[Rfam]
RNA sequence: AAUGAUCCACAUUCUGUCUUUCUUAUUUUUCUUUUUUACCUUCCCAUAAAGGAGGUUGCUUCGUUUUAAAGAGAAAUCAAGAAGACGCAAAAGCCUCCCGACUAGCGGAGGUUUUUUUGUU
Numbered sequence: 001a002a003u004g005a006u007c008c009a010c011a012u013u014c015u016g017u018c019u020u021u022c023u024u025a026u027u028u029u030u031c032u033u034u035u036u037u038a039c040c041u042u043c044c045c046a047u048a049a050a051g052g053a054g055g056u057u058g059c060u061u062c063g064u065u066u067u068a069a070a071g072a073g074a075a076a077u078c079a080a081g082a083a084g085a086c087g088c089a090a091a092a093g094c095c096u097c098c099c100g101a102c103u104a105g106c107g108g109a110g111g112u113u114u115u116u117u118u119g120u121u
Stems, first nucleotide, its partner, number of pairs: 016086004021082004028076007036068001038065001041054004055062001090115009